[Rfam]
RNA: nadA riboswitch
Nucleotides: 069
Stems, first nucleotide, its partner, number of pairs: 001069007013055001016062007026051001028049004033044004
Number, partner (000 for none) and nucleotide at each position: 001069g002068c003067u004066u005065u006064c007063a008000a009000c010000a011000u012000c013055c014000c015000c016062g017061u018060u019059c020058c021057g022056g023000g024000g025000c026051g027000u028049g029048g030047u031046u032000u033044u034043u035042c036041u037000u038000c039000c040000c041036a042035g043034a044033a045000c046031a047030a048029c049028u050000u051026c052000g053000c054000g055013g056022c057021c058020g059019g060018a061017a062016c063007u064006g065005a066004a067003g068002g069001c